[Rfam]
RNA sequence: GGAUCACUCCUCACGGAGUCAAGGCCAUACGGACAGCCGGGUCCACUGCCGA
Numbered sequence: 001g002g003a004u005c006a007c008u009c010c011u012c013a014c015g016g017a018g019u020c021a022a023g024g025c026c027a028u029a030c031g032g033a034c035a036g037c038c039g040g041g042u043c044c045a046c047u048g049c050c051g052a
Base pairs, nucleotide, nucleotide: 001044002043003042004041005040006019007018008017009016010015
RNA: Streptococcus sRNA SpF59 (ldcC RNA)